[Rfam]
RNA sequence: CAUUGGUAGCCUCGCAACUUUGUACUACGAACCCCGCCAGGACCGGAAGGUAGCAACGGUAGUAGAUACAAGGUGUGCCGAGGAUGUGCU
Numbered sequence: 001c002a003u004u005g006g007u008a009g010c011c012u013c014g015c016a017a018c019u020u021u022g023u024a025c026u027a028c029g030a031a032c033c034c035c036g037c038c039a040g041g042a043c044c045g046g047a048a049g050g051u052a053g054c055a056a057c058g059g060u061a062g063u064a065g066a067u068a069c070a071a072g073g074u075g076u077g078c079c080g081a082g083g084a085u086g087u088g089c090u
Base pairs, nucleotide, nucleotide: 005090006089007088008087010083011082012081013080014079015075017074018073019072020071021070022069025065026064027063028062034059035058036057042051043050044049
Shown here is a 90-nucleotide RNA sequence from Psychrobacter sp. PRwf-1, a member of the family "Bacterial small signal recognition particle RNA". Its Rfam clan is "SRP clan". The family's RNA type in Rfam is non-coding RNA gene. Rfam's curators put it in the seed alignment. The base pairs follow the family's consensus structure, which is taken from published work.